[Rfam]
RNA: TPP riboswitch aptamer (THI element)
RNA sequence: GCAGCCACCUCGGGGUGCCCCGGAUGGGGGCUGAGAUGCAGGCGCGGCCUGCGAACCCGUCGAACCUGAACCGGUUAGCACCGGCGGAGGGAAGGGAACGGGUCCAUGC
Numbered sequence: 001g002c003a004g005c006c007a008c009c010u011c012g013g014g015g016u017g018c019c020c021c022g023g024a025u026g027g028g029g030g031c032u033g034a035g036a037u038g039c040a041g042g043c044g045c046g047g048c049c050u051g052c053g054a055a056c057c058c059g060u061c062g063a064a065c066c067u068g069a070a071c072c073g074g075u076u077a078g079c080a081c082c083g084g085c086g087g088a089g090g091g092a093a094g095g096g097a098a099c100g101g102g103u104c105c106a107u108g109c
Base pairs, nucleotide, nucleotide: 008095009094010093011059012058013057014056016053017031018030019029020028021027038052039051040050041049042048065090066089067088071084072083073082074081